[Rfam]
RNA sequence: UUUUUAGUAAAAGUAUGUCUCAUGCAAUGUUUGAGACAUAUUUGCACUAAAU
Numbered sequence: 001u002u003u004u005u006a007g008u009a010a011a012a013g014u015a016u017g018u019c020u021c022a023u024g025c026a027a028u029g030u031u032u033g034a035g036a037c038a039u040a041u042u043u044g045c046a047c048u049a050a051a052u
Base pairs, nucleotide, nucleotide: 006048007047008046011043012042014040015039016038018036019035020034021033022031
RNA: mir-1302 microRNA precursor family
Organism: Equus caballus